[Rfam]
RNA sequence: GUUUGGAUAAGGUCCUCUCUUUUGUGAAUGUUGCCAAAAUAAAUGCCUUUUCUUUAAAG
Numbered sequence: 001g002u003u004u005g006g007a008u009a010a011g012g013u014c015c016u017c018u019c020u021u022u023u024g025u026g027a028a029u030g031u032u033g034c035c036a037a038a039a040u041a042a043a044u045g046c047c048u049u050u051u052c053u054u055u056a057a058a059g
Base pairs, nucleotide, nucleotide: 002056005053006052007051009049010048011047012046018041020039021038022037023036024035026034
Overview:
Shown here is a 59-nucleotide sequence from Sarcophilus harrisii, a member of the family "mir-7386 microRNA precursor family". The match comes from Rfam's covariance-model search (52 bits). Pairs were carried over by alignment from the consensus structure, which was predicted with RNAalifold. The source organism's lineage runs through Eukaryota, Gnathostomata, Teleostomi, Dipnotetrapodomorpha and Sarcophilus.